[Rfam]
RNA sequence: UGACUGCAAGACGAUGUGAAUGGGUUGAGAACCAUCCAUUUUGGUGGGCCAGGGCCCGGGAAAGUCCCCGGGCCAUUCUGCAUAGAUGCAGGCCCAACAAUGGGUUAGCUUCAUGGGCUAGGAGUCCAAAUCCAAUUAAAAUGGGUUGGGCUGAGACGAGGUGGAGCAUAUGGACUCCUGCUUGGUGACUAUUUUGGCCAGCUAUGACAGUCAUUCAUGUGGUUUAAUUAAACUGGGUUAACCGAACGGGGCUUAUGAUCUUGCAAUC
Numbered sequence: 001u002g003a004c005u006g007c008a009a010g011a012c013g014a015u016g017u018g019a020a021u022g023g024g025u026u027g028a029g030a031a032c033c034a035u036c037c038a039u040u041u042u043g044g045u046g047g048g049c050c051a052g053g054g055c056c057c058g059g060g061a062a063a064g065u066c067c068c069c070g071g072g073c074c075a076u077u078c079u080g081c082a083u084a085g086a087u088g089c090a091g092g093c094c095c096a097a098c099a100a101u102g103g104g105u106u107a108g109c110u111u112c113a114u115g116g117g118c119u120a121g122g123a124g125u126c127c128a129a130a131u132c133c134a135a136u137u138a139a140a141a142u143g144g145g146u147u148g149g150g151c152u153g154a155g156a157c158g159a160g161g162u163g164g165a166g167c168a169u170a171u172g173g174a175c176u177c178c179u180g181c182u183u184g185g186u187g188a189c190u191a192u193u194u195u196g197g198c199c200a201g202c203u204a205u206g207a208c209a210g211u212c213a214u215u216c217a218u219g220u221g222g223u224u225u226a227a228u229u230a231a232a233c234u235g236g237g238u239u240a241a242c243c244g245a246a247c248g249g250g251g252c253u254u255a256u257g258a259u260c261u262u263g264c265a266a267u268c
Base pairs, nucleotide, nucleotide: 002268003267005265006264007263008262009261010260011259014220015219016218017217018216019215021058022057023056024055025054026053032047033046034045035044036043062254063253064252066251067250068249069248079090080089081088082087091106092105093104094103095102096101108189110187111185112184113183115181121178122177123176124175133173135171136170222238223237224236225235226234
RNA: RNase MRP